[Rfam]
RNA sequence: ACAGCGGGACGACCCGUUGCCGUCCUCACGCAGAAGCGGGACGACCCGU
Numbered sequence: 001a002c003a004g005c006g007g008g009a010c011g012a013c014c015c016g017u018u019g020c021c022g023u024c025c026u027c028a029c030g031c032a033g034a035a036g037c038g039g040g041a042c043g044a045c046c047c048g049u
Stems, first nucleotide, its partner, number of pairs: 002019007036049005

Background
The family of this 49-nucleotide sequence from Sinimarinibacterium arenosum is "Guanidine-II riboswitch aptamer (mini-ykkC)". For this family Rfam cites "Identification of 22 candidate structured RNAs in bacteria using the CMfinder comparative genomics pipeline" (Weinberg et al., Nucleic Acids Res, 2007). A search with the family's covariance model found it, with a score of 36 bits. Rfam describes the family as follows. Simpler in structure and has fewer highly conserved nucleotide positions than the ykkC-yxkD leader. Despite this each of its two stem-loop structures directly bind free guanidine. Therefore, mini-ykkC RNA motif represents a distinct class of guanidine-sensing RNAs. Its crystal structure was also determined.